[Rfam]
RNA sequence: GGGUCAAGUGAUGAGGUUUAAACUGCAACAAUAUGAUGGGAGCUUAGCUCCUGUGAUUCCUAUGUAUUUAAGUCUCUGAUGAUC
Numbered sequence: 001g002g003g004u005c006a007a008g009u010g011a012u013g014a015g016g017u018u019u020a021a022a023c024u025g026c027a028a029c030a031a032u033a034u035g036a037u038g039g040g041a042g043c044u045u046a047g048c049u050c051c052u053g054u055g056a057u058u059c060c061u062a063u064g065u066a067u068u069u070a071a072g073u074c075u076c077u078g079a080u081g082a083u084c
Stems, first nucleotide, its partner, number of pairs: 001084002004082003038052005

This 84-nucleotide RNA belongs to the Rfam family "Small nucleolar RNA Z199". Rfam describes the family as follows. snoZ199 is a C/D box small nucleolar RNA, which acts as a methylation guide RNA for sites on 18S and 25S rRNA. Rice snoZ199 is reported to be homologous to Arabidopsis snoR13. On this family, see Chen et al., Nucleic Acids Res 2003: "The high diversity of snoRNAs in plants: identification and comparative study of 120 snoRNA genes from Oryza sativa".